[Rfam]
RNA sequence: UGACCCGGCGGCUCCCGACGCAAGAACCAAAGAACCGGGAAAAGAACCAACCCACCCUCACCGCCCCCUGUCGAUCACCCGCAGGAGUGAACAUCGCCAACUCGGCUGGCGUGGAGGGGAGUCGAUGGUGCAGCGUCAGCCUGGACGAAAACCGCACACAUGAAUCGGCCCCCGCCGGGACUGGCAUCCCAAUGCGAGGGCCUAACACCAGGAAGAAAGCACCUUCCCG
Numbered sequence: 001u002g003a004c005c006c007g008g009c010g011g012c013u014c015c016c017g018a019c020g021c022a023a024g025a026a027c028c029a030a031a032g033a034a035c036c037g038g039g040a041a042a043a044g045a046a047c048c049a050a051c052c053c054a055c056c057c058u059c060a061c062c063g064c065c066c067c068c069u070g071u072c073g074a075u076c077a078c079c080c081g082c083a084g085g086a087g088u089g090a091a092c093a094u095c096g097c098c099a100a101c102u103c104g105g106c107u108g109g110c111g112u113g114g115a116g117g118g119g120a121g122u123c124g125a126u127g128g129u130g131c132a133g134c135g136u137c138a139g140c141c142u143g144g145a146c147g148a149a150a151a152c153c154g155c156a157c158a159c160a161u162g163a164a165u166c167g168g169c170c171c172c173c174g175c176c177g178g179g180a181c182u183g184g185c186a187u188c189c190c191a192a193u194g195c196g197a198g199g200g201c202c203u204a205a206c207a208c209c210a211g212g213a214a215g216a217a218a219g220c221a222c223c224u225u226c227c228c229g
Base pairs, nucleotide, nucleotide: 001207007065008064009063010062075090076089077088078087080085105140106139107138108137109136167202168201169200170199171198173196174195175194177190178189179188180187211227212226213225214224215223

Shown here is a 229-nucleotide RNA sequence from Streptomyces sp. cf386, a member of the family "Streptomyces sRNA 4677".
Rfam describes the family as follows. Located in the intergenic region between anti-sigma factor SCO4677 gene and a putative regulatory protein gene SCO4676. scr4677 expression requires the SCO4677 activity and scr4677 sRNA itself seem to affect the levels of the SCO4676-associated transcripts.
A reference for the family is Hindra et al. (2014), "Complex intra-operonic dynamics mediated by a small RNA in Streptomyces coelicolor", PLoS One.
The pairing is the family consensus, mapped onto this sequence.
The family's RNA type in Rfam is small RNA.